This 58-nucleotide RNA from Octodon degus belongs to the Rfam family "Selenocysteine insertion sequence 1". It is annotated as a cis-regulatory element.
[Rfam]
RNA sequence: UAUUUGUUCAUGACAGUCACAGUGUAAAGUAUACACAGCUGUGACUUGAUUUGAAAGA
Numbered sequence: 001u002a003u004u005u006g007u008u009c010a011u012g013a014c015a016g017u018c019a020c021a022g023u024g025u026a027a028a029g030u031a032u033a034c035a036c037a038g039c040u041g042u043g044a045c046u047u048g049a050u051u052u053g054a055a056a057g058a
Stems, first nucleotide, its partner, number of pairs: 001058001003056003015046009029036002